Description:
Rfam assigns this 56-nucleotide RNA from Pediococcus pentosaceus to the family "L17 ribosomal protein downstream element".

RNA sequence: GGGUGUUACGAUGUUGGAGAAAUCCUAGUCUAGCCCACGGCGAGUUUUUAACUUGC
Dot-bracket structure: ((((.....(((...(((....)))..)))..))))...((((((.....))))))
The sequence is in the family's curated seed alignment. Rfam classes the family as a cis-regulatory element. Taxonomically the source falls in Pediococcus pentosaceus (Bacteria, Bacillota, Lactobacillaceae, Pediococcus).